A member of the RNA family "Small nucleolar RNA SNORA40" from Castor canadensis, 130 nucleotides long. The family's consensus secondary structure was predicted with RNAalifold. A search with the family's covariance model found it, with a score of 100 bits. By type it is an H/ACA-box small nucleolar RNA. About the family: The snoRNA ACA 40 belongs to the H/ACA family of snoRNAs and guides the pseudouridylation of 28S rRNA subunit at position U4565. NB This family has a high threshold value to exclude a large number of closely related sequences that do not appear to have conserved H and ACA boxes, and may be pseudogenes. The literature on the family includes a 1997 paper in J Mol Biol by Ofengand and Bakin, "Mapping to nucleotide resolution of pseudouridine residues in large subunit ribosomal RNAs from representative eukaryotes, prokaryotes, archaebacteria, mitochondria and chloroplasts".
RNA sequence: UGUGUGUGUGUGUGUUUGUUUAACUUGUGGACAAAGACUUAAUUGACAGGUGCAAAAAUUAAAUCCUCUUUUGCAACCCAGAACUCAAAAUUGUACAGUAUGAGUUUUGAUACACAUUAGAAGGAAUAUG
Numbered sequence: 001u002g003u004g005u006g007u008g009u010g011u012g013u014g015u016u017u018g019u020u021u022a023a024c025u026u027g028u029g030g031a032c033a034a035a036g037a038c039u040u041a042a043u044u045g046a047c048a049g050g051u052g053c054a055a056a057a058a059u060u061a062a063a064u065c066c067u068c069u070u071u072u073g074c075a076a077c078c079c080a081g082a083a084c085u086c087a088a089a090a091u092u093g094u095a096c097a098g099u100a101u102g103a104g105u106u107u108u109g110a111u112a113c114a115c116a117u118u119a120g121a122a123g124g125a126a127u128a129u130g
Stems, first nucleotide, its partner, number of pairs: 001052003005048003012038002015035005024029001063127002066124002069121003073117001079109009091100001